[Rfam]
RNA sequence: CUGUCCUGCUCGUGAUCGUCUUCUCAACCUUCACCGGCGGGACGCACGAGAGGGGCUUUCCCGGGCGACCCGCCCGGGGAAGCCCCUC
Numbered sequence: 001c002u003g004u005c006c007u008g009c010u011c012g013u014g015a016u017c018g019u020c021u022u023c024u025c026a027a028c029c030u031u032c033a034c035c036g037g038c039g040g041g042a043c044g045c046a047c048g049a050g051a052g053g054g055g056c057u058u059u060c061c062c063g064g065g066c067g068a069c070c071c072g073c074c075c076g077g078g079g080a081a082g083c084c085c086c087u088c
Base pairs, nucleotide, nucleotide: 001044005041006040007039008038009037010036012034013033014032015031018028019027050088051087052086053085054084055083056082057081058080059079060078061077062076063075064074065073